The record is an 87-nucleotide RNA sequence from Rhododendron simsii, which matches "Small nucleolar RNA R44/J54/Z268 family" in Rfam. The family's consensus secondary structure was predicted with PFOLD.
RNA sequence: UUUGCAAGUGAUGAUAAAACAGACAGGGACAUCAGAUCUCCAUUGGAGGAAGAUGACUUAAGUCUUUGGGAAUCUCUCUGAUGCAAU
Dot-bracket structure: .(((((...........................................................................))))).
Source information
It scores 88 bits against the family's covariance model.